[Rfam]
RNA: Bacterial large subunit ribosomal RNA, nucleotides 2678 to 2938
RNA sequence: GGAAACUUGCGAGGAGCUGUCCCUAGUACGAGAGGACCGGGAUGGACGGAUCACUGGCGUACCAGUUAUCGCGCCAGCGGUAGCGCUGGGUACCCAAAUCCGGCCGGGAUAAGCGCUGAAGGCAUCUAAGCGCGAAGCCCCCCUCUAGAUAAGGUUUCCCAUCCAGUUAAUGGAGUAAGACCCCUGGUAGACUACCAGGUAGAUAGGCCGGGCGUGCAAGCACAGCAAUGUGUGCAGCGGACCGGUACUAAUAGGUCGAGG
Numbered sequence: 001g002g003a004a005a006c007u008u009g010c011g012a013g014g015a016g017c018u019g020u021c022c023c024u025a026g027u028a029c030g031a032g033a034g035g036a037c038c039g040g041g042a043u044g045g046a047c048g049g050a051u052c053a054c055u056g057g058c059g060u061a062c063c064a065g066u067u068a069u070c071g072c073g074c075c076a077g078c079g080g081u082a083g084c085g086c087u088g089g090g091u092a093c094c095c096a097a098a099u100c101c102g103g104c105c106g107g108g109a110u111a112a113g114c115g116c117u118g119a120a121g122g123c124a125u126c127u128a129a130g131c132g133c134g135a136a137g138c139c140c141c142c143c144u145c146u147a148g149a150u151a152a153g154g155u156u157u158c159c160c161a162u163c164c165a166g167u168u169a170a171u172g173g174a175g176u177a178a179g180a181c182c183c184c185u186g187g188u189a190g191a192c193u194a195c196c197a198g199g200u201a202g203a204u205a206g207g208c209c210g211g212g213c214g215u216g217c218a219a220g221c222a223c224a225g226c227a228a229u230g231u232g233u234g235c236a237g238c239g240g241a242c243c244g245g246u247a248c249u250a251a252u253a254g255g256u257c258g259a260g261g
Base pairs, nucleotide, nucleotide: 001159002158003157004156005155006154007153008152011145012144013143014142017045018044019043020042021041022040023039047102048101049100050099051098055096056095057094062089063088064087065086066085067082068081069080070079071078072077106140107139108138113133114132115131116130117129162174163173164172176259179257180256181255182254183199184198185197186196187195204250205249206248207246208245209244210243211242213239214238217234220233221232222231223230224229